[Rfam]
Notes: The family of this 90-nucleotide RNA from Desulfovibrio sp. OH1186_COT-070 is "Selenocysteine transfer RNA". Pairs were carried over by alignment from the consensus structure, which is taken from published work. NCBI's taxonomy places the organism under Bacteria, Pseudomonadati, Thermodesulfobacteriota, Desulfovibrionia, Desulfovibrio.

RNA sequence: GGAGGCGUUUCGUCACCGGUGUGGCGCCCGGUCUUCAAAACCGGUGGCAGGUUUCAUCGCCUGCGGUAGGUUCGACCCCUAUACGUCUCC
Number, nucleotide and partner (000 for none) at each position: 001g090002g089003a088004g087005g086006c085007g084008u083009u000010u000011c026012g025013u024014c023015a022016c021017c000018g000019g000020u000021g016022u015023g014024g013025c012026g011027c000028c044029c043030g042031g041032u040033c000034u000035u000036c000037a000038a000039a000040a032041c031042c030043g029044g028045u000046g000047g064048c063049a062050g061051g060052u000053u000054u000055c000056a000057u000058c000059g000060c051061c050062u049063g048064c047065g000066g000067u081068a080069g079070g078071u000072u000073c000074g000075a000076c000077c000078c070079c069080u068081a067082u000083a008084c007085g006086u005087c004088u003089c002090c001